[Rfam]
RNA sequence: AAACAUAGUUUUCUUCGAGUAGUAAUUUCUAAAUCAAAGGACAAGGAAUUGUUACCGAUGGGAUUGAAUGGAAACAAUCAAUCCUCCCGAUUUCUGACUAACUCUCAGAAUGACUUGGAAAGGAGAAAGGACAAUAUAUUU
Dot-bracket structure: ..(.......((((((..(((((((((((....((....))...)))))))))))....((((((((.((....)).))))))))((.............................))...)))))).......)......